[Rfam]
RNA sequence: GAGUGUUACAGUUCUUUUGGAAUUUGUCUAGCAGGUUUUCCAGUUCACAUUGGAAAGCAAAA
Numbered sequence: 001g002a003g004u005g006u007u008a009c010a011g012u013u014c015u016u017u018u019g020g021a022a023u024u025u026g027u028c029u030a031g032c033a034g035g036u037u038u039u040c041c042a043g044u045u046c047a048c049a050u051u052g053g054a055a056a057g058c059a060a061a062a
Stems, first nucleotide, its partner, number of pairs: 035058010